[Rfam]
RNA sequence: AGGAGGGACCAGCCCCAGUGGCGGGGCAGCUCUGGAAACCUGGAUUCAGUCGGCAGCUUCUCCGUCUGCAGGGCCUGGAGGCUCCGGGGCGGG
Number, nucleotide and partner (000 for none) at each position: 001a000002g085003g084004a083005g082006g000007g000008a000009c000010c077011a076012g075013c073014c072015c071016c000017a000018g000019u000020g066021g065022c064023g063024g062025g061026g060027c000028a058029g057030c056031u055032c000033u053034g000035g051036a050037a000038a000039c000040c049041u048042g047043g000044a000045u000046u000047c042048a041049g040050u036051c035052g000053g033054c000055a031056g030057c029058u028059u000060c026061u025062c024063c023064g022065u021066c020067u000068g000069c000070a000071g015072g014073g013074c000075c012076u011077g010078g000079a000080g000081g000082c005083u004084c003085c002086g000087g000088g000089g000090c000091g000092g000093g000